This 110-nucleotide sequence from Eucalyptus grandis belongs to the Rfam family "Small nucleolar RNA snoR100". Rfam 15.1 lists 1,851 matches to the family in 220 species. The organism belongs to Eucalyptus, within Eukaryota.

[Rfam]
RNA sequence: UCAUGAAGGAAGCAUGGUAAUGUGCACGGAGAUUGAAUCUUUGGGUCCGCAUGUCUGCUCUCUCUGAUGCCUUUAGCAAUGAUUUGAGGGCCUGGUUACGACCCACAUUC
Number, nucleotide and partner (000 for none) at each position: 001u000002c000003a000004u000005g000006a000007a000008g000009g000010a000011a000012g025013c024014a023015u022016g000017g000018u000019a000020a000021u000022g015023u014024g013025c012026a000027c000028g000029g000030a000031g000032a000033u000034u000035g000036a000037a000038u000039c000040u000041u000042u000043g093044g092045g091046u090047c089048c000049g000050c000051a000052u000053g083054u082055c081056u000057g077058c076059u075060c000061u000062c000063u000064c000065u000066g000067a000068u000069g000070c000071c000072u000073u000074u000075a059076g058077c057078a000079a000080u000081g055082a054083u053084u000085u000086g000087a000088g000089g047090g046091c045092c044093u043094g000095g000096u000097u000098a000099c000100g000101a000102c000103c000104c000105a000106c000107a000108u000109u000110c000